[Rfam]
RNA: Purine riboswitch aptamer
Organism: Fontibacillus phaseoli
RNA sequence: UUGAAUAUUAGUUAGUUAUCUCGUAUAAAGCCGGGAAUAUGGCCCGGAAGUUUCUACCUGAGAACCGUAAAUUUUCGGACUACGAGUGAAUACGUCAUUUUG
Numbered sequence: 001u002u003g004a005a006u007a008u009u010a011g012u013u014a015g016u017u018a019u020c021u022c023g024u025a026u027a028a029a030g031c032c033g034g035g036a037a038u039a040u041g042g043c044c045c046g047g048a049a050g051u052u053u054c055u056a057c058c059u060g061a062g063a064a065c066c067g068u069a070a071a072u073u074u075u076c077g078g079a080c081u082a083c084g085a086g087u088g089a090a091u092a093c094g095u096c097a098u099u100u101u102g
Stems, first nucleotide, its partner, number of pairs: 020086006031047005058078007